Source information:
The record is a 65-nucleotide sequence from Desulfosarcina widdelii, which matches "int-alpA RNA" in Rfam. Rfam's curators write: Acidobacteria (1 example), Planctomycetes (1 example), Proteobacteria. By type it is a small RNA. Pairs were carried over by alignment from the consensus structure, which is taken from published work.

RNA sequence: CCAAGGGAUAGGGAGGCCACCCGAAAAGCGCACCCCUGAGCGCCUUCCCUUGGAUUCAAUCAGGG
Dot-bracket structure: ((((((((..(((......))).....((((..[[[[[.))))..)))))))).......]]]]]